This 67-nucleotide RNA sequence from Paraliobacillus sp. PM-2 belongs to the Rfam family "Bacillaceae-1 RNA".
Pairs were carried over by alignment from the consensus structure, which is taken from published work.
Taxonomically the source falls in Paraliobacillus (Bacteria, Bacillota, Caryophanales, Bacillaceae).
RNA sequence: UUGGAUGUAUGUUAGACUAAGACCGUCACGUCCUGUGACAACGUCUAACUGACCCACCUCAUGUGGG
Numbered sequence: 001u002u003g004g005a006u007g008u009a010u011g012u013u014a015g016a017c018u019a020a021g022a023c024c025g026u027c028a029c030g031u032c033c034u035g036u037g038a039c040a041a042c043g044u045c046u047a048a049c050u051g052a053c054c055c056a057c058c059u060c061a062u063g064u065g066g067g
Base pairs, nucleotide, nucleotide: 011049012048013047014046015045016044017043025039026038027037028036029035053067054066055065056064057063